[Rfam]
RNA sequence: UUAUCAGGCCGGGCCCCUCUGGCAGCUCAAGGAGCUGCGAUGUCGGACUGAGUGA
Numbered sequence: 001u002u003a004u005c006a007g008g009c010c011g012g013g014c015c016c017c018u019c020u021g022g023c024a025g026c027u028c029a030a031g032g033a034g035c036u037g038c039g040a041u042g043u044c045g046g047a048c049u050g051a052g053u054g055a
Stems, first nucleotide, its partner, number of pairs: 006049002009046004022038006

Background: Rfam assigns this 55-nucleotide RNA sequence from Hartmannibacter diazotrophicus to the family "terC RNA". Taxonomically the source falls in Hartmannibacter (Bacteria, Pseudomonadati, Pseudomonadota, Alphaproteobacteria). It scores 53 bits against the family's covariance model.